[Rfam]
RNA sequence: UCUGUGUGUCCCUGUUCAUCGUGGUUGUGAUGUCCUCUUUGAAUCAUCACAACCUGCAUGAAUGAGGACAGGCUCGC
Numbered sequence: 001u002c003u004g005u006g007u008g009u010c011c012c013u014g015u016u017c018a019u020c021g022u023g024g025u026u027g028u029g030a031u032g033u034c035c036u037c038u039u040u041g042a043a044u045c046a047u048c049a050c051a052a053c054c055u056g057c058a059u060g061a062a063u064g065a066g067g068a069c070a071g072g073c074u075c076g077c
Stems, first nucleotide, its partner, number of pairs: 008069003012066002014063006023054002026051007

Description: Rfam assigns this 77-nucleotide RNA sequence from Lottia gigantea to the family "mir-67 microRNA precursor family". The base pairs follow the family's consensus structure, which was predicted with RNAalifold. On this family, see Cao et al., Insect Biochem Mol Biol 2008: "Identification of conserved microRNAs in Bombyx mori (silkworm) and regulation of fibroin L chain production by microRNAs in heterologous system". The organism belongs to Lottia, within Eukaryota. The match comes from Rfam's covariance-model search (54 bits). Its family is annotated with RISC complex and miRNA-mediated post-transcriptional gene silencing in the Gene Ontology.